[Rfam]
RNA sequence: GCUGGUGUAGCACAGUGGUAGUGCAGCUGAUUCGUAAUCAGCAGGUCGGGGGUUCGAGUCCCUUCACCAGCA
Numbered sequence: 001g002c003u004g005g006u007g008u009a010g011c012a013c014a015g016u017g018g019u020a021g022u023g024c025a026g027c028u029g030a031u032u033c034g035u036a037a038u039c040a041g042c043a044g045g046u047c048g049g050g051g052g053u054u055c056g057a058g059u060c061c062c063u064u065c066a067c068c069a070g071c072a
Base pairs, nucleotide, nucleotide: 001071002070003069004068005067006066007065010024011023012022013021026042027041028040029039030038048064049063050062051061052060
Description: A member of the RNA family "tRNA" from Brevibacillus sp. WF146, 72 nucleotides long. Clan: tRNA clan. The family's RNA type in Rfam is transfer RNA. The family's consensus secondary structure is taken from published work. It scores 73 bits against the family's covariance model.